[Rfam]
RNA sequence: CUUUGACUUUAACAAGGAGGUCCUUUCUGCUAUUUGUAAAAAAGUAAGUGCUUCCUUGUUUUAGUAGAAG
Numbered sequence: 001c002u003u004u005g006a007c008u009u010u011a012a013c014a015a016g017g018a019g020g021u022c023c024u025u026u027c028u029g030c031u032a033u034u035u036g037u038a039a040a041a042a043a044g045u046a047a048g049u050g051c052u053u054c055c056u057u058g059u060u061u062u063a064g065u066a067g068a069a070g
Base pairs, nucleotide, nucleotide: 001070002069003068006065007064008063011060012059013058014057015056016055017054018053019052020051021050023048024047025046027044028043
Dot-bracket structure: (((..(((..(((((((((((.(((.((..............)).))).)))))))))))..)))..)))
Rfam assigns this 70-nucleotide sequence from Loxodonta africana to the family "mir-302 microRNA precursor family". On this family, see Suh et al., Dev Biol 2004: "Human embryonic stem cells express a unique set of microRNAs". A search with the family's covariance model found it, with a score of 67 bits. Gene Ontology terms of the family: miRNA-mediated post-transcriptional gene silencing and RISC complex. The family has 49 seed sequences and 2,090 matches in Rfam 15.1. The family is grouped with related families in Rfam's "mir-290 clan".